[Rfam]
This 86-nucleotide RNA sequence from Medicago truncatula belongs to the Rfam family "MIR2617 microRNA precursor family". A search with the family's covariance model found it, with a score of 75 bits. The base pairs follow the family's consensus structure, which was predicted with RNAalifold.
RNA sequence: AUGACGUGUAGCAUGCCCGUUGUGGAAUUACUCUGAUGUAUAAUUGUUAUUUAAUUGUUUUUGGGUAACGGGAUGUUACAAUGUCA
Numbered sequence: 001a002u003g004a005c006g007u008g009u010a011g012c013a014u015g016c017c018c019g020u021u022g023u024g025g026a027a028u029u030a031c032u033c034u035g036a037u038g039u040a041u042a043a044u045u046g047u048u049a050u051u052u053a054a055u056u057g058u059u060u061u062u063g064g065g066u067a068a069c070g071g072g073a074u075g076u077u078a079c080a081a082u083g084u085c086a
Stems, first nucleotide, its partner, number of pairs: 002086005007080008016072006